[Rfam]
RNA sequence: CUCGACAACGGGUAUUCUCGGGUUGAUAAUACAGACGUCAUUGAUGUUAUUGCUUGAGAAUACGCGUGGACGAG
Numbered sequence: 001c002u003c004g005a006c007a008a009c010g011g012g013u014a015u016u017c018u019c020g021g022g023u024u025g026a027u028a029a030u031a032c033a034g035a036c037g038u039c040a041u042u043g044a045u046g047u048u049a050u051u052g053c054u055u056g057a058g059a060a061u062a063c064g065c066g067u068g069g070a071c072g073a074g
Base pairs, nucleotide, nucleotide: 001074002073003072004071008067009066010065012063013062014061015060016059017058018057019056020055021054022053023052025051026050027049028048029047030046031045032043033042
RNA: mir-137 microRNA precursor family